RNA sequence: ACCGUGUACUUACCUAUUAUAUGGUAGCCGAGAUAAAUGUAUUUCACCUACUAUAUAGCGGGUAAGUACAUGGUUU
Numbered sequence: 001a002c003c004g005u006g007u008a009c010u011u012a013c014c015u016a017u018u019a020u021a022u023g024g025u026a027g028c029c030g031a032g033a034u035a036a037a038u039g040u041a042u043u044u045c046a047c048c049u050a051c052u053a054u055a056u057a058g059c060g061g062g063u064a065a066g067u068a069c070a071u072g073g074u075u076u
Stems, first nucleotide, its partner, number of pairs: 001074015017058011030045002033042003
Description:
mir-7563 microRNA precursor family: a 76-nucleotide RNA from Ameiurus melas. NCBI's taxonomy places the organism under Eukaryota, Deuterostomia, Ostariophysi, Otophysi, Ameiurus. Pairs were carried over by alignment from the consensus structure, which was predicted with RNAalifold.